RNA sequence: UCUACGGCUAGACGGAAAGACCCCGUGAACCUUUACUAUAGUUUCGCAUUGAAUAUUAAUUAUUUUUGUGUAGGAUAACUGGGAGAUAAUGAUCUAUAAAUGCAAGUUUAUAAGUAAUCAACCUUGAAAUACCAGUCUAAAAUAAUUUAUAUUCUAAUUUAAUUUUGUAAACCAAUUUAAAAAAAUUGCGUAAUGGGUAGUUUGACUGGGGCGGUCUCCUCCUAAAAAGUAACGGAGGAGUACAAAGGUAUUCUCAAUACGUUUGGAAAUCGUAUGUUGAGUGUAAGAGCAAAAGAAUGCUUAACUGUAAGAUAGACAUAUCAAACAGAUACGAAAGUAGGUUCUAGUGAUCCGAUAAUUCUGAAUGGAAAGGUUAUCGCUCAACGAAUAAAAGGUACUCCGGGGAUAACAGGCUAAUAUUGCCCAAGAGUUCAUAUCGACGGCAAUGUUUGGCACCUCGAUGUCGGCUCAUCACAUCCUGGAGCUGAAGUUGGUUCCAAGGGUAUGGCUGUUCGCCAUUUAAAGUGGUACGCGAGCUGGGUUUAGAACGUCGUGAGACAGUUCGGUCCCUAUCUACCGUAGAUGAA
Numbered sequence: 001u002c003u004a005c006g007g008c009u010a011g012a013c014g015g016a017a018a019g020a021c022c023c024c025g026u027g028a029a030c031c032u033u034u035a036c037u038a039u040a041g042u043u044u045c046g047c048a049u050u051g052a053a054u055a056u057u058a059a060u061u062a063u064u065u066u067u068g069u070g071u072a073g074g075a076u077a078a079c080u081g082g083g084a085g086a087u088a089a090u091g092a093u094c095u096a097u098a099a100a101u102g103c104a105a106g107u108u109u110a111u112a113a114g115u116a117a118u119c120a121a122c123c124u125u126g127a128a129a130u131a132c133c134a135g136u137c138u139a140a141a142a143u144a145a146u147u148u149a150u151a152u153u154c155u156a157a158u159u160u161a162a163u164u165u166u167g168u169a170a171a172c173c174a175a176u177u178u179a180a181a182a183a184a185a186u187u188g189c190g191u192a193a194u195g196g197g198u199a200g201u202u203u204g205a206c207u208g209g210g211g212c213g214g215u216c217u218c219c220u221c222c223u224a225a226a227a228a229g230u231a232a233c234g235g236a237g238g239a240g241u242a243c244a245a246a247g248g249u250a251u252u253c254u255c256a257a258u259a260c261g262u263u264u265g266g267a268a269a270u271c272g273u274a275u276g277u278u279g280a281g282u283g284u285a286a287g288a289g290c291a292a293a294a295g296a297a298u299g300c301u302u303a304a305c306u307g308u309a310a311g312a313u314a315g316a317c318a319u320a321u322c323a324a325a326c327a328g329a330u331a332c333g334a335a336a337g338u339a340g341g342u343u344c345u346a347g348u349g350a351u352c353c354g355a356u357a358a359u360u361c362u363g364a365a366u367g368g369a370a371a372g373g374u375u376a377u378c379g380c381u382c383a384a385c386g387a388a389u390a391a392a393a394g395g396u397a398c399u400c401c402g403g404g405g406a407u408a409a410c411a412g413g414c415u416a417a418u419a420u421u422g423c424c425c426a427a428g429a430g431u432u433c434a435u436a437u438c439g440a441c442g443g444c445a446a447u448g449u450u451u452g453g454c455a456c457c458u459c460g461a462u463g464u465c466g467g468c469u470c471a472u473c474a475c476a477u478c479c480u481g482g483a484g485c486u487g488a489a490g491u492u493g494g495u496u497c498c499a500a501g502g503g504u505a506u507g508g509c510u511g512u513u514c515g516c517c518a519u520u521u522a523a524a525g526u527g528g529u530a531c532g533c534g535a536g537c538u539g540g541g542u543u544u545a546g547a548a549c550g551u552c553g554u555g556a557g558a559c560a561g562u563u564c565g566g567u568c569c570c571u572a573u574c575u576a577c578c579g580u581a582g583a584u585g586a587a
Stems, first nucleotide, its partner, number of pairs: 001583007010575003014570002022404004027400002029396005035201004042193002045190004051154006058147009068137001078136005085119003095112007158181003162178001165175003204216004217239006240385001242342002248300006254280002257275005281290002305328004311322003330339003353379007361372002413454003417451001418448007428438002465540001466538004470532001471529005478503002481498006505519005546564004550559003
RNA: Bacterial large subunit ribosomal RNA, nucleotides 1948 to 2534